[Rfam]
The record is a 134-nucleotide RNA from Balaenoptera physalus, which matches "Small nucleolar RNA SNORA71" in Rfam.
Its family is annotated with RNA processing and nucleolus in the Gene Ontology.
For this family Rfam cites "The family of box ACA small nucleolar RNAs is defined by an evolutionarily conserved secondary structure and ubiquitous sequence elements essential for RNA accumulation" (Ganot et al., Genes Dev, 1997).
The family's consensus secondary structure was predicted with PFOLD.
About the family: The members of this family belong to the H/ACA class of snoRNAs which bind a number of proteins (including dyskerin, Gar1p and Nop10p) to form snoRNP complexes. This class of snoRNAs are thought to guide the sites of modification of uridines to pseudouridines by forming direct base pairing interactions with substrate RNAs.
RNA sequence: CCCUGCAUUGGGAACUGAUCGUGGGCUGGCUGUGCCCUGGUCACGGGUAGUGCCGGCAGAGGAGUUGCUGAAAGCGUUUCCCCGUGUUUGGAGGGUUCACUCCUGUCCCUUCCGAACUCUGGAGCUGUCCCACA
Numbered sequence: 001c002c003c004u005g006c007a008u009u010g011g012g013a014a015c016u017g018a019u020c021g022u023g024g025g026c027u028g029g030c031u032g033u034g035c036c037c038u039g040g041u042c043a044c045g046g047g048u049a050g051u052g053c054c055g056g057c058a059g060a061g062g063a064g065u066u067g068c069u070g071a072a073a074g075c076g077u078u079u080c081c082c083c084g085u086g087u088u089u090g091g092a093g094g095g096u097u098c099a100c101u102c103c104u105g106u107c108c109c110u111u112c113c114g115a116a117c118u119c120u121g122g123a124g125c126u127g128u129c130c131c132a133c134a
Stems, first nucleotide, its partner, number of pairs: 002056002005053005016043006023037004067131001070129002073126003086117005091111005